[Rfam]
Rfam assigns this 116-nucleotide RNA sequence from Streptomyces sp. ISL-1 to the family "Group II catalytic intron D1-D4-2".
RNA sequence: GAAGGUAGGCCUUCGGAGCCGCCCUGCGGGGGGAGGCUGCAAACCGCCACAUGCUGCGGAAGCGGUGACGCGACCGUGGUGAGCGAUGUGGAAAAGGCGCCCAAGAGGCGUCAGGU
Numbered sequence: 001g002a003a004g005g006u007a008g009g010c011c012u013u014c015g016g017a018g019c020c021g022c023c024c025u026g027c028g029g030g031g032g033g034a035g036g037c038u039g040c041a042a043a044c045c046g047c048c049a050c051a052u053g054c055u056g057c058g059g060a061a062g063c064g065g066u067g068a069c070g071c072g073a074c075c076g077u078g079g080u081g082a083g084c085g086a087u088g089u090g091g092a093a094a095a096g097g098c099g100c101c102c103a104a105g106a107g108g109c110g111u112c113a114g115g116u
Stems, first nucleotide, its partner, number of pairs: 001014005015040001017038004022033004045115001047091006053080002056077003062071002096112006
The pairing is the family consensus, mapped onto this sequence.
Rfam links the family to the GO term Group II intron splicing.
From the family's description: Group II introns are found in rRNA, tRNA and mRNA of organelles in fungi, plants and protists, and also in mRNA in bacteria.